[Rfam]
RNA: Xanthomonadaceae sRNA sX13
RNA sequence: AACGCCUGUCGCUGAUCUCUCCCCUCCCCUGGAGUGAUCCCCCGGAACGGUGCACCCCUCCCCAGGUCCCGUUCCACCCAGCCCCGCCGGCCCCCCCUGCCCGCGGGGCUUUUUA
Numbered sequence: 001a002a003c004g005c006c007u008g009u010c011g012c013u014g015a016u017c018u019c020u021c022c023c024c025u026c027c028c029c030u031g032g033a034g035u036g037a038u039c040c041c042c043c044g045g046a047a048c049g050g051u052g053c054a055c056c057c058c059u060c061c062c063c064a065g066g067u068c069c070c071g072u073u074c075c076a077c078c079c080a081g082c083c084c085c086g087c088c089g090g091c092c093c094c095c096c097c098u099g100c101c102c103g104c105g106g107g108g109c110u111u112u113u114u115a
Stems, first nucleotide, its partner, number of pairs: 004012001006011001014039004019034004044075007052068001054067003080110008089101003